[Rfam]
RNA: Nuclear RNase P
RNA sequence: UCCGGGGGAAGCUCACCGCCGAGGCCAGCACGGGGUGCGCGUCACCCUCGCCCCGCCUCGGGGAAGGUCUGAGGGAAGGGCUGCUCGCGGCCCCAGCAGGGCCCCGCCCGCGUGGGGCGGGUGAGCCACCAGCAAGGGGCGGCGCCGCGCGGGCCGGGCGGGCAGGAGACGCCGUGGCGGCUGCUCCAGAGGGGCAGCCCCGGCUGAUGCUCAGGGCCCCGCGGCGCGUUGAGACAGACUCACGGCCGGCAGCGCUGAGUCCAAUGGGUGAGGUGGGGCAGCGCCCCAUAACCCAAUUCAGACUACUCUCCCCCGGA
Numbered sequence: 001u002c003c004g005g006g007g008g009a010a011g012c013u014c015a016c017c018g019c020c021g022a023g024g025c026c027a028g029c030a031c032g033g034g035g036u037g038c039g040c041g042u043c044a045c046c047c048u049c050g051c052c053c054c055g056c057c058u059c060g061g062g063g064a065a066g067g068u069c070u071g072a073g074g075g076a077a078g079g080g081c082u083g084c085u086c087g088c089g090g091c092c093c094c095a096g097c098a099g100g101g102c103c104c105c106g107c108c109c110g111c112g113u114g115g116g117g118c119g120g121g122u123g124a125g126c127c128a129c130c131a132g133c134a135a136g137g138g139g140c141g142g143c144g145c146c147g148c149g150c151g152g153g154c155c156g157g158g159c160g161g162g163c164a165g166g167a168g169a170c171g172c173c174g175u176g177g178c179g180g181c182u183g184c185u186c187c188a189g190a191g192g193g194g195c196a197g198c199c200c201c202g203g204c205u206g207a208u209g210c211u212c213a214g215g216g217c218c219c220c221g222c223g224g225c226g227c228g229u230u231g232a233g234a235c236a237g238a239c240u241c242a243c244g245g246c247c248g249g250c251a252g253c254g255c256u257g258a259g260u261c262c263a264a265u266g267g268g269u270g271a272g273g274u275g276g277g278g279c280a281g282c283g284c285c286c287c288a289u290a291a292c293c294c295a296a297u298u299c300a301g302a303c304u305a306c307u308c309u310c311c312c313c314c315g316g317a
Base pairs, nucleotide, nucleotide: 001317002316003315004314007311008310009309012272013271014270015269016268017267020060021059022058023057024056033047034046035045036044037043069301070300071299072298073297079247080246081245082244089103090102091101092100093099104120105119106118107117108116109115121243122242123241124240125239127237140228141227273289274288275287276286277285278284279283